[Rfam]
RNA sequence: GAAAAAAUCAUAUUUUUACCCUGUAUAAUUCCGGGAAUAUGGCUCGGAAGUUUCUACCAGGUGUCCGUAAAACACCACAGGCUACAGGGGGGUAUACCCAUUCC
Numbered sequence: 001g002a003a004a005a006a007a008u009c010a011u012a013u014u015u016u017u018a019c020c021c022u023g024u025a026u027a028a029u030u031c032c033g034g035g036a037a038u039a040u041g042g043c044u045c046g047g048a049a050g051u052u053u054c055u056a057c058c059a060g061g062u063g064u065c066c067g068u069a070a071a072a073c074a075c076c077a078c079a080g081g082c083u084a085c086a087g088g089g090g091g092g093u094a095u096a097c098c099c100a101u102u103c104c
Base pairs, nucleotide, nucleotide: 019089020088021087022086023085024084025083029049030048031047032046033045034044035043058080060076061075062074063073064072
The family of this 104-nucleotide sequence from Thermoanaerobacteraceae bacterium SP2 is "Purine riboswitch aptamer". The organism belongs to Thermoanaerobacteraceae, within Bacteria.